A member of the RNA family "MIR5286 microRNA precursor family" from Medicago truncatula, 78 nucleotides long. Gene Ontology terms of the family: miRNA-mediated post-transcriptional gene silencing and RISC complex. It scores 94 bits against the family's covariance model.
[Rfam]
RNA sequence: AACAACUCCAGUUGUCCGGUGUUUGAUUUGUAAAACUAUUUCAGGUACAGGAUAAACUAGAGGCAAGGGACAGGACAA
Number, nucleotide and partner (000 for none) at each position: 001a000002a000003c000004a000005a000006c062007u061008c060009c000010a058011g057012u056013u055014g053015u052016c051017c050018g000019g048020u047021g046022u045023u044024u043025g042026a041027u000028u038029u000030g036031u035032a000033a000034a000035a031036c030037u000038a028039u000040u000041u026042c025043a024044g023045g022046u021047a020048c019049a000050g017051g016052a015053u014054a000055a013056a012057c011058u010059a000060g008061a007062g006063g000064c000065a000066a000067g000068g000069g000070a000071c000072a000073g000074g000075a000076c000077a000078a000